[Rfam]
RNA sequence: GUGUAUUCUACAGUGCAUGUGUCUCCAGUGGUUUUGAGCAGCUGGAGAUACAUCUCUGUUGGAAUAAC
Dot-bracket structure: .....((((((((.(..((((((((((((...........)))))))))))).).)))).))))....
A member of the RNA family "mir-139 microRNA precursor family" from Eleutherodactylus coqui, 68 nucleotides long.
A search with the family's covariance model found it, with a score of 78 bits.
The base pairs follow the family's consensus structure, which was predicted with RNAalifold.